This 129-nucleotide RNA sequence from Camelus dromedarius belongs to the Rfam family "Small nucleolar RNA SNORA11". Rfam's curators write: U107 (SNORA11) is a member of the H/ACA class of snoRNAs that guide the sites of modification of uridines to pseudouridines. This snoRNA was identified by RT-PCR from blood cells and its expression confirmed by Northern blot analysis. There is no predicted target for this guide snRNA. Pairs were carried over by alignment from the consensus structure, which was predicted with RNAalifold. Rfam 15.1 lists 2,014 matches to the family in 202 species. It scores 121 bits against the family's covariance model.
RNA sequence: GGGGUGUGCUCAGUGCAGGGCUUCUGAAGAAAUGGCUCCUCUGUUUACAACACACCCAGCAGGAAUCUGGGUUCAUUGUGACAAGGGGCACAAAGCUUGGGGCCUUCCUAUGAACAAAUACCUACAUGU
Numbered sequence: 001g002g003g004g005u006g007u008g009c010u011c012a013g014u015g016c017a018g019g020g021c022u023u024c025u026g027a028a029g030a031a032a033u034g035g036c037u038c039c040u041c042u043g044u045u046u047a048c049a050a051c052a053c054a055c056c057c058a059g060c061a062g063g064a065a066u067c068u069g070g071g072u073u074c075a076u077u078g079u080g081a082c083a084a085g086g087g088g089c090a091c092a093a094a095g096c097u098u099g100g101g102g103c104c105u106u107c108c109u110a111u112g113a114a115c116a117a118a119u120a121c122c123u124a125c126a127u128g129u
Base pairs, nucleotide, nucleotide: 002057003056004055005054006053007052008051013046015044016043017042018041019040020039023035024034070122071121072120077116078115079114082112083111085105086104087103089101091099092098093097